[Rfam]
RNA sequence: AGAGAAAGGAUCCAAAGGGAUCGCAUUGAUCCUAAUUAAGCUGAUUUAUUCCCCAAUAAUUGUUUUUUUUUUCCUUCUCAAUCGAAAGAUGGAAGAAAAACAAAUUCCAAACAUUUUGCUUACUUUUCCGGAUCAUGCGAUCUCUUUGGAUUCAUUCUUU
Numbered sequence: 001a002g003a004g005a006a007a008g009g010a011u012c013c014a015a016a017g018g019g020a021u022c023g024c025a026u027u028g029a030u031c032c033u034a035a036u037u038a039a040g041c042u043g044a045u046u047u048a049u050u051c052c053c054c055a056a057u058a059a060u061u062g063u064u065u066u067u068u069u070u071u072u073c074c075u076u077c078u079c080a081a082u083c084g085a086a087a088g089a090u091g092g093a094a095g096a097a098a099a100a101c102a103a104a105u106u107c108c109a110a111a112c113a114u115u116u117u118g119c120u121u122a123c124u125u126u127u128c129c130g131g132a133u134c135a136u137g138c139g140a141u142c143u144c145u146u147u148g149g150a151u152u153c154a155u156u157c158u159u160u
Stems, first nucleotide, its partner, number of pairs: 002159005008153014023138004028134005038121004
This 160-nucleotide sequence belongs to the Rfam family "mir-393 microRNA precursor family". On this family, see Kruszka et al., J Plant Physiol 2012: "Role of microRNAs and other sRNAs of plants in their changing environments". Rfam's curators put it in the seed alignment.